Shown here is a 73-nucleotide RNA sequence from Propithecus coquereli, a member of the family "Small nucleolar RNA SNORD60".
It is annotated as a C/D-box small nucleolar RNA.
Rfam 15.1 lists 825 matches to the family in 373 species.
The organism belongs to Propithecus, within Eukaryota.
RNA sequence: AGCCAUUAGAGAAAUGCACAUCAGUGUGUGAAAGCUGCACAUGCAGUCUGAUUAUUUUACAAGACUGAGGCUU
Numbered sequence: 001a002g003c004c005a006u007u008a009g010a011g012a013a014a015u016g017c018a019c020a021u022c023a024g025u026g027u028g029u030g031a032a033a034g035c036u037g038c039a040c041a042u043g044c045a046g047u048c049u050g051a052u053u054a055u056u057u058u059a060c061a062a063g064a065c066u067g068a069g070g071c072u073u
Stems, first nucleotide, its partner, number of pairs: 001072004034047005